[Rfam]
RNA: ZMP/ZTP riboswitch aptamer (pfl RNA motif)
Organism: Schaalia turicensis
RNA sequence: GCCGUAGGUUGCAACUGGCGAGGGUGGAUCACCACCGGGGAGCAACCCGAAGUACCCGUGAGGCGUCGCCCGCCUGGGCGCCGGGC
Numbered sequence: 001g002c003c004g005u006a007g008g009u010u011g012c013a014a015c016u017g018g019c020g021a022g023g024g025u026g027g028a029u030c031a032c033c034a035c036c037g038g039g040g041a042g043c044a045a046c047c048c049g050a051a052g053u054a055c056c057c058g059u060g061a062g063g064c065g066u067c068g069c070c071c072g073c074c075u076g077g078g079c080g081c082c083g084g085g086c
Stems, first nucleotide, its partner, number of pairs: 005049001007047006015039002017074004024035004063081005